[Rfam]
RNA: chrB-b RNA
Organism: Blastomonas sp. AAP25
RNA sequence: CCGGGACAGGUGCAACCUCCCGGUCAGGCGGUCCGCGCCCAAGCGUUGC
Numbered sequence: 001c002c003g004g005g006a007c008a009g010g011u012g013c014a015a016c017c018u019c020c021c022g023g024u025c026a027g028g029c030g031g032u033c034c035g036c037g038c039c040c041a042a043g044c045g046u047u048g049c
Base pairs, nucleotide, nucleotide: 001023002022003021004020005019006018012049013048014047015046016045027039028038029037030036